[Rfam]
RNA sequence: AAGCCAGCCAAUUAAUCUGCUUACUUGAAUGUGUUUCUGCAGAAAUUUAGAAACAGCUGGCAAUGGUGAUGACGAUGGCGAUGGUGAUGGUGAUGUCAUUUUAUGAGCCUAAGGACAACUUGAGGGCAUUAUGGUCCCUCAAAAUGGCUAAAAUG
Numbered sequence: 001a002a003g004c005c006a007g008c009c010a011a012u013u014a015a016u017c018u019g020c021u022u023a024c025u026u027g028a029a030u031g032u033g034u035u036u037c038u039g040c041a042g043a044a045a046u047u048u049a050g051a052a053a054c055a056g057c058u059g060g061c062a063a064u065g066g067u068g069a070u071g072a073c074g075a076u077g078g079c080g081a082u083g084g085u086g087a088u089g090g091u092g093a094u095g096u097c098a099u100u101u102u103a104u105g106a107g108c109c110u111a112a113g114g115a116c117a118a119c120u121u122g123a124g125g126g127c128a129u130u131a132u133g134g135u136c137c138c139u140c141a142a143a144a145u146g147g148c149u150a151a152a153a154u155g
Stems, first nucleotide, its partner, number of pairs: 003061005016043005095148004107135003110131003114127001116125001

Rfam assigns this 155-nucleotide sequence from Jaculus jaculus to the family "Small nucleolar RNA SNORA33". Taxonomically the source falls in Jaculus (Eukaryota, Eumetazoa, Euarchontoglires, Dipodoidea). The family has 28 seed sequences and 1,176 matches in Rfam 15.1.